[Rfam]
RNA sequence: CUUCCUCAGCCUUACUCCAGGGGCUUUUGAUUUUGUAGAGUUCUCUGGCAUUGCCUGAGGAUAAACUAAAAGUAUGCUCACUUCCCUCCCCAGGACGAUUCUCAGCAUCCUCUGGGGCCUACAAUUUGAGCAAACAUU
Numbered sequence: 001c002u003u004c005c006u007c008a009g010c011c012u013u014a015c016u017c018c019a020g021g022g023g024c025u026u027u028u029g030a031u032u033u034u035g036u037a038g039a040g041u042u043c044u045c046u047g048g049c050a051u052u053g054c055c056u057g058a059g060g061a062u063a064a065a066c067u068a069a070a071a072g073u074a075u076g077c078u079c080a081c082u083u084c085c086c087u088c089c090c091c092a093g094g095a096c097g098a099u100u101c102u103c104a105g106c107a108u109c110c111u112c113u114g115g116g117g118c119c120u121a122c123a124a125u126u127u128g129a130g131c132a133a134a135c136a137u138u
Stems, first nucleotide, its partner, number of pairs: 003061007011053001017048006023041005075132003079128002088117006095111001097109002
Rfam assigns this 138-nucleotide RNA sequence from Pterocles burchelli to the family "Small nucleolar RNA SNORA49". The family's RNA type in Rfam is H/ACA-box small nucleolar RNA. Gene Ontology terms of the family: RNA processing and nucleolus. Rfam describes the family as follows. The snoRNA ACA49 has no identified RNA target. NB genomic sequence 1-nt different from published. The match comes from Rfam's covariance-model search (114 bits).